[Rfam]
RNA sequence: GGGAGCGGAUGGGUUCUGGUGUGCCCUCUGGUCUUCAAAACCAGUAUGAGGGGUUAAGAGCUUCUCGGGUGAGUUCGAUUCUCACACGUUCCC
Numbered sequence: 001g002g003g004a005g006c007g008g009a010u011g012g013g014u015u016c017u018g019g020u021g022u023g024c025c026c027u028c029u030g031g032u033c034u035u036c037a038a039a040a041c042c043a044g045u046a047u048g049a050g051g052g053g054u055u056a057a058g059a060g061c062u063u064c065u066c067g068g069g070u071g072a073g074u075u076c077g078a079u080u081c082u083c084a085c086a087c088g089u090u091c092c093c
Base pairs, nucleotide, nucleotide: 001093002092003091004090005089006088007087008085011026012025013024014023016021028044029043030042031041032040047067048066049065050064051063070084071083072082073081
Selenocysteine transfer RNA: a 93-nucleotide RNA from Falseniella ignava. Lineage of the source: Bacteria > Bacillati > Bacillota > Falseniella > Falseniella ignava.